[Rfam]
RNA: L2-Alphaproteobacteria ribosomal protein leader
Organism: Roseobacter sp. CCS2
RNA sequence: GGGCACCUACGGGGGCCUUUAACAUCAGGGUCGCGCAAGUGGCCCGCCAAGCAAACGGAAGAAGCUAA
Numbered sequence: 001g002g003g004c005a006c007c008u009a010c011g012g013g014g015g016c017c018u019u020u021a022a023c024a025u026c027a028g029g030g031u032c033g034c035g036c037a038a039g040u041g042g043c044c045c046g047c048c049a050a051g052c053a054a055a056c057g058g059a060a061g062a063a064g065c066u067a068a
Base pairs, nucleotide, nucleotide: 001018002017003016004015006014007013008012028045029044030043031042032041033040034039